[Rfam]
RNA sequence: CAUCUCUGUGAUGAACAAUUUGUAAUUUAAAGUAGUGGACUGAUAUCUGCUGAUGAAGAAAAUAAUUCUGAGAGUUG
Numbered sequence: 001c002a003u004c005u006c007u008g009u010g011a012u013g014a015a016c017a018a019u020u021u022g023u024a025a026u027u028u029a030a031a032g033u034a035g036u037g038g039a040c041u042g043a044u045a046u047c048u049g050c051u052g053a054u055g056a057a058g059a060a061a062a063u064a065a066u067u068c069u070g071a072g073a074g075u076u077g
Stems, first nucleotide, its partner, number of pairs: 001077002004074003
RNA: Small nucleolar RNA R21